RNA sequence: AUUAUGAGACAUGACAAAGGCUGGGAACAGGUAGAGCAUGAAUGAAGCUAACAACAGAAUAUAGUCAUAGAAAGUGAGAAUGAGAGGAAGAACCUGUUGUUGCUACACUCAUGCACUGCCUCUUCCCUGGCUCUGGCUCUGUCCCUUCC
Dot-bracket structure: .................((.(.(((((.((((((.((((((....(((.....................................................)))....)))))).)))))).))))).).)).................
MIR408 microRNA precursor family: a 149-nucleotide sequence from Lupinus albus. The organism belongs to Lupinus, within Eukaryota. For this family Rfam cites "Novel and stress-regulated microRNAs and other small RNAs from Arabidopsis" (Sunkar and Zhu, Plant Cell, 2004).